[Rfam]
RNA sequence: UCAAGAGAAGGGGAUGGAGUCCCCCGGAACCGCCCGCAAGGGCUGAUGACUCCUACCGCGUG
Numbered sequence: 001u002c003a004a005g006a007g008a009a010g011g012g013g014a015u016g017g018a019g020u021c022c023c024c025c026g027g028a029a030c031c032g033c034c035c036g037c038a039a040g041g042g043c044u045g046a047u048g049a050c051u052c053c054u055a056c057c058g059c060g061u062g
Stems, first nucleotide, its partner, number of pairs: 010025004016053006032043004

The family of this 62-nucleotide RNA from Vineibacter terrae is "Fluoride riboswitch aptamer (crcB RNA motif)". Taxonomically the source falls in Vineibacter (Bacteria, Pseudomonadati, Pseudomonadota, Alphaproteobacteria). Its family is annotated with response to fluoride and positive regulation of gene expression in the Gene Ontology.